RNA: L4-Archaeoglobi ribosomal protein leades
Organism: Natronomonas pharaonis
RNA sequence: CUGACGGGCGCGUCCGGGUCAAUUGCGGAAUGCAACACCCGAUCUCUCUCCCCGUCCCUCCCUCGAUGGAGGUCGGGAAGGGAGAGCGCGUCACCAUCAG
Numbered sequence: 001c002u003g004a005c006g007g008g009c010g011c012g013u014c015c016g017g018g019u020c021a022a023u024u025g026c027g028g029a030a031u032g033c034a035a036c037a038c039c040c041g042a043u044c045u046c047u048c049u050c051c052c053c054g055u056c057c058c059u060c061c062c063u064c065g066a067u068g069g070a071g072g073u074c075g076g077g078a079a080g081g082g083a084g085a086g087c088g089c090g091u092c093a094c095c096a097u098c099a100g
Base pairs, nucleotide, nucleotide: 001100002099003098004097008091009090010089011088012087013086015041016040017039018038023035024034025033026032027031043085044084045083046082047081048080049079051077052076053075